Nucleotides: 057
Stems, first nucleotide, its partner, number of pairs: 001055011015041005021035001023033003
Number, partner (000 for none) and nucleotide at each position: 001055g002054u003053a004052a005051g006050a007049a008048a009047u010046c011045u012000g013000g014000u015041c016040g017039g018038u019037u020000c021035u022000c023033c024032g025031c026000a027000u028000a029000c030000g031025g032024c033023g034000u035021a036000a037019a038018a039017c040016u041015g042000a043000a044000a045011a046010g047009a048008u049007u050006u051005u052004u053003u054002g055001c056000a057000g
Annotation: The record is a 57-nucleotide RNA from Oesophagostomum dentatum, which matches "mir-255 microRNA precursor family" in Rfam. Pairs were carried over by alignment from the consensus structure, which was predicted with RNAalifold. For this family Rfam cites "Large-scale sequencing reveals 21U-RNAs and additional microRNAs and endogenous siRNAs in C. elegans" (Ruby et al., Cell, 2006). A search with the family's covariance model found it, with a score of 59 bits.